[Rfam]
RNA: Voltage-gated potassium-channel Kv1.4 IRES
Organism: Heterocephalus glaber
RNA sequence: GAAGUCUGAGAAUCGUGAGGCUGUCUAGACCAGCGGAGCUCUGGAGAGCAGUGCUGAGCCCCCGAGCAGAGAGAACACAGGGGUGUGCUGAUUUAAAAACAGAAAAUGCAAAGUUGGACUGAAAAUAUCCUUAGUCUUCCAAGCAAUCUGCUUAAGAGUUCCAAACUUACCUUCGUUUGGUGAGCGAAGGAGCUGCCCUAUUUUCUCUCCUCCUUCCUUCCUCUUUUACAGCUGGAACCAGCCGUUUCCCAAGGCCACCACCAUG
Numbered sequence: 001g002a003a004g005u006c007u008g009a010g011a012a013u014c015g016u017g018a019g020g021c022u023g024u025c026u027a028g029a030c031c032a033g034c035g036g037a038g039c040u041c042u043g044g045a046g047a048g049c050a051g052u053g054c055u056g057a058g059c060c061c062c063c064g065a066g067c068a069g070a071g072a073g074a075a076c077a078c079a080g081g082g083g084u085g086u087g088c089u090g091a092u093u094u095a096a097a098a099a100c101a102g103a104a105a106a107u108g109c110a111a112a113g114u115u116g117g118a119c120u121g122a123a124a125a126u127a128u129c130c131u132u133a134g135u136c137u138u139c140c141a142a143g144c145a146a147u148c149u150g151c152u153u154a155a156g157a158g159u160u161c162c163a164a165a166c167u168u169a170c171c172u173u174c175g176u177u178u179g180g181u182g183a184g185c186g187a188a189g190g191a192g193c194u195g196c197c198c199u200a201u202u203u204u205c206u207c208u209c210c211u212c213c214u215u216c217c218u219u220c221c222u223c224u225u226u227u228a229c230a231g232c233u234g235g236a237a238c239c240a241g242c243c244g245u246u247u248c249c250c251a252a253g254g255c256c257a258c259c260a261c262c263a264u265g
Stems, first nucleotide, its partner, number of pairs: 043249005064222001066220001068218002071215003075211001077201001080199006087193003092188003100150004107145003114142005121136002166184006